[Rfam]
RNA: U11 spliceosomal RNA
RNA sequence: AAAAAGGGGGUUUUUCCUUUGGGGAACACCGUGAAUUGAAUGCUAUGCUUGGCCUCUGGGUUCCGGUGGAGUAUGGCAAUCAAGACAUAUUCAGCCCGUAAUUUUUGGAACUGAGAGCUGUCUGACGCCUCUUUAGAGGUGUCAAGGCGUUCUC
Numbered sequence: 001a002a003a004a005a006g007g008g009g010g011u012u013u014u015u016c017c018u019u020u021g022g023g024g025a026a027c028a029c030c031g032u033g034a035a036u037u038g039a040a041u042g043c044u045a046u047g048c049u050u051g052g053c054c055u056c057u058g059g060g061u062u063c064c065g066g067u068g069g070a071g072u073a074u075g076g077c078a079a080u081c082a083a084g085a086c087a088u089a090u091u092c093a094g095c096c097c098g099u100a101a102u103u104u105u106u107g108g109a110a111c112u113g114a115g116a117g118c119u120g121u122c123u124g125a126c127g128c129c130u131c132u133u134u135a136g137a138g139g140u141g142u143c144a145a146g147g148c149g150u151u152c153u154c
Base pairs, nucleotide, nucleotide: 008097009096010095011094012093013026014025015024016023017022027068028067029066030065031064033062034061036059037058038057069092070091071090072089073088074087075086115152116151117150118149120148121147122146123145125142126141127140128139129138130137131136